[Rfam]
RNA: Caenorhabditis snoRNA ceN101
RNA sequence: AUCCUCACUUAUAAGCCGGGGCACUAACUUAUGUUGUAAGUAACCUAGUAAAACGUGAGGAAGAGCAAAGAGAACACCAGACACCGUGAAUAUUUUGAUGUUUUCGGUCAUAGUGGUUCCCAUAUUA
Numbered sequence: 001a002u003c004c005u006c007a008c009u010u011a012u013a014a015g016c017c018g019g020g021g022c023a024c025u026a027a028c029u030u031a032u033g034u035u036g037u038a039a040g041u042a043a044c045c046u047a048g049u050a051a052a053a054c055g056u057g058a059g060g061a062a063g064a065g066c067a068a069a070g071a072g073a074a075c076a077c078c079a080g081a082c083a084c085c086g087u088g089a090a091u092a093u094u095u096u097g098a099u100g101u102u103u104u105c106g107g108u109c110a111u112a113g114u115g116g117u118u119c120c121c122a123u124a125u126u127a
Stems, first nucleotide, its partner, number of pairs: 002061007015049002019045001023041002025036004070121001072119004078113001083108004088103006